The family of this 74-nucleotide sequence from Pogona vitticeps is "mir-205 microRNA precursor family". The base pairs follow the family's consensus structure, which was predicted with RNAalifold. Gene Ontology terms of the family: RISC complex and miRNA-mediated post-transcriptional gene silencing. The literature on the family includes a 2008 paper in Genome Res by Murchison et al., "Conservation of small RNA pathways in platypus".
Nucleotides: 074
Stems, first nucleotide, its partner, number of pairs: 011063006019055003023051004028046003
Number, partner (000 for none) and nucleotide at each position: 001000c002000u003000u004000g005000g006000g007000u008000g009000u010000c011063c012062u013061u014060c015059a016058u017000u018000c019055c020054a021053c022000c023051g024050g025049a026048a027000u028046c029045u030044g031000u032000a033000g034000a035000g036000a037000c038000a039000g040000a041000c042000a043000a044030u045029g046028g047000a048026u049025u050024u051023c052000u053021g054020u055019g056000a057000a058016a059015u060014g061013a062012a063011g064000c065000u066000c067000a068000c069000c070000a071000g072000g073000c074000a